[Rfam]
RNA sequence: AUAAUGAUACUUACGCAUUGCCGGGUCACACCAUGGUGCGUCCCGGAGGAAAUCGGGGAGGCUUAAAGGCCUAUGA
Numbered sequence: 001a002u003a004a005u006g007a008u009a010c011u012u013a014c015g016c017a018u019u020g021c022c023g024g025g026u027c028a029c030a031c032c033a034u035g036g037u038g039c040g041u042c043c044c045g046g047a048g049g050a051a052a053u054c055g056g057g058g059a060g061g062c063u064u065a066a067a068g069g070c071c072u073a074u075g076a
Base pairs, nucleotide, nucleotide: 012073013041014040015039016038017037018036019035020034042058043057044056046054047053059072060071061070

Overview:
Shown here is a 76-nucleotide RNA from Firmicutes bacterium CAG:145, a member of the family "pemK RNA". It is annotated as a cis-regulatory element. The organism belongs to Bacillota, within Bacteria. It scores 49 bits against the family's covariance model.